[Rfam]
RNA sequence: UGGCGCCCAAUGUCUGGUGCCUGGAUAGUAGAGGGGGCUCCAUGAGGAAGAAGACUCAGGUAGCCAGGGUUGUAUGUAGAAAUACCAUCGCAUGCCAUGGGAGCCUGCCACAGUGAGUGAUAGAGUCUUAUUAUGGGACAAGCAUUAAGCCAACACGAGGUCUAUGGAGACAGUUAAAAGGGGCAUUAAACCUGUGAGGAGAAAGGUAAAAACCAAUGAUUUAUUUAAAUAUUUUGAUUUUGUUAAGGAUCUUUGCUCAU
Numbered sequence: 001u002g003g004c005g006c007c008c009a010a011u012g013u014c015u016g017g018u019g020c021c022u023g024g025a026u027a028g029u030a031g032a033g034g035g036g037g038c039u040c041c042a043u044g045a046g047g048a049a050g051a052a053g054a055c056u057c058a059g060g061u062a063g064c065c066a067g068g069g070u071u072g073u074a075u076g077u078a079g080a081a082a083u084a085c086c087a088u089c090g091c092a093u094g095c096c097a098u099g100g101g102a103g104c105c106u107g108c109c110a111c112a113g114u115g116a117g118u119g120a121u122a123g124a125g126u127c128u129u130a131u132u133a134u135g136g137g138a139c140a141a142g143c144a145u146u147a148a149g150c151c152a153a154c155a156c157g158a159g160g161u162c163u164a165u166g167g168a169g170a171c172a173g174u175u176a177a178a179a180g181g182g183g184c185a186u187u188a189a190a191c192c193u194g195u196g197a198g199g200a201g202a203a204a205g206g207u208a209a210a211a212a213c214c215a216a217u218g219a220u221u222u223a224u225u226u227a228a229a230u231a232u233u234u235u236g237a238u239u240u241u242g243u244u245a246a247g248g249a250u251c252u253u254u255g256c257u258c259a260u
Stems, first nucleotide, its partner, number of pairs: 006035003014028003041053001043051001089115003093112002098110003121141001123139001126137003146188003149184003195236005201230001204222004209217001245260001247258002250255001

Shown here is a 260-nucleotide sequence from Rattus norvegicus, a member of the family "Mason-Pfizer monkey virus packaging signal". Pairs were carried over by alignment from the consensus structure, which was predicted with PFOLD. The match comes from Rfam's covariance-model search (128 bits). Rfam describes the family as follows. This family represents a group of sequences that are related to the Mason-Pfizer monkey virus (MPMV) packaging signal. The packaging signal is located in the 5' UTR and is required for specific RNA encapsidation.